[Rfam]
RNA sequence: ACAAGAAUGGGAUCGUCGGUCUACCGAGCAAUAUCACCCGUUCGGUGGAAGAUCUUCGUUAAACCUU
Numbered sequence: 001a002c003a004a005g006a007a008u009g010g011g012a013u014c015g016u017c018g019g020u021c022u023a024c025c026g027a028g029c030a031a032u033a034u035c036a037c038c039c040g041u042u043c044g045g046u047g048g049a050a051g052a053u054c055u056u057c058g059u060u061a062a063a064c065c066u067u
Stems, first nucleotide, its partner, number of pairs: 011057002015053003020049010
RNA: mir-2774 microRNA precursor family
Organism: Bombyx mori